[Rfam]
RNA sequence: GAAACACCCCUAUGGAGCAGGACUUGCUUAAGUGGGGCAUUUGUUCUCACUGGGUCUGCUCCUUGAGUGUGUUGCU
Number, nucleotide and partner (000 for none) at each position: 001g075002a000003a073004a072005c071006a070007c069008c000009c067010c000011u065012a064013u000014g062015g061016a060017g059018c058019a057020g000021g056022a055023c054024u000025u000026g000027c000028u000029u053030a000031a051032g050033u049034g048035g047036g046037g044038c043039a000040u000041u000042u000043g038044u037045u000046c036047u035048c034049a033050c032051u031052g000053g029054g023055u022056c021057u019058g018059c017060u016061c015062c014063u000064u012065g011066a000067g009068u000069g007070u006071g005072u004073u003074g000075c001076u000